[Rfam]
RNA: HNH endonuclease-associated RNA and ORF (HEARO) RNA
RNA sequence: GUCAACUACCCCUACUUAGUACCAAACGGUACUUGAAGUGGGAGCUUGUAAGCUCAGUUGUUGACCAGCUUGUAUCAAGUGUAACAAAUUUGGUAAGCGUUAGAAACGAAAAUAUAGGUACUCUGGGGUGCUUCUCCAGCUCCAGACUCUACGGUUAGUAGUUAAACAGGUGUAGUGGGUUAAGCCAGUGCUACUAACAUACAAAACCGUUUCAUAACAUUAGCGAGGAGACCUUUAC
Numbered sequence: 001g002u003c004a005a006c007u008a009c010c011c012c013u014a015c016u017u018a019g020u021a022c023c024a025a026a027c028g029g030u031a032c033u034u035g036a037a038g039u040g041g042g043a044g045c046u047u048g049u050a051a052g053c054u055c056a057g058u059u060g061u062u063g064a065c066c067a068g069c070u071u072g073u074a075u076c077a078a079g080u081g082u083a084a085c086a087a088a089u090u091u092g093g094u095a096a097g098c099g100u101u102a103g104a105a106a107c108g109a110a111a112a113u114a115u116a117g118g119u120a121c122u123c124u125g126g127g128g129u130g131c132u133u134c135u136c137c138a139g140c141u142c143c144a145g146a147c148u149c150u151a152c153g154g155u156u157a158g159u160a161g162u163u164a165a166a167c168a169g170g171u172g173u174a175g176u177g178g179g180u181u182a183a184g185c186c187a188g189u190g191c192u193a194c195u196a197a198c199a200u201a202c203a204a205a206a207c208c209g210u211u212u213c214a215u216a217a218c219a220u221u222a223g224c225g226a227g228g229a230g231a232c233c234u235u236u237a238c
Base pairs, nucleotide, nucleotide: 001065002064003063004062005061006060008058010042011041012038013037043054044053045052046051068224069223070222072220073095074094075093076092077091078090079089080088099218100217101216102215103213104212105211106210107209108208118152119151122146123145124144125143126142127141128140129139130234133231134230135229136228137227154198155197156196157195158194159193160192161191162190166189167188169186170185171184173182174181175180